[Rfam]
RNA sequence: AUGAGGAGGAACCGAUAUGAACGAAGUUCAUAUUUAGGAUGCGCCCGACAAUCUGCCGCCGAGCAAAGCGAGGGGGCAAUACCCGCA
Numbered sequence: 001a002u003g004a005g006g007a008g009g010a011a012c013c014g015a016u017a018u019g020a021a022c023g024a025a026g027u028u029c030a031u032a033u034u035u036a037g038g039a040u041g042c043g044c045c046c047g048a049c050a051a052u053c054u055g056c057c058g059c060c061g062a063g064c065a066a067a068g069c070g071a072g073g074g075g076g077c078a079a080u081a082c083c084c085g086c087a
Stems, first nucleotide, its partner, number of pairs: 008046002013041001016032006055077003059073002063069002
Description:
Shown here is an 87-nucleotide RNA, a member of the family "GA-cis RNA". Pairs were carried over by alignment from the consensus structure, which is taken from published work.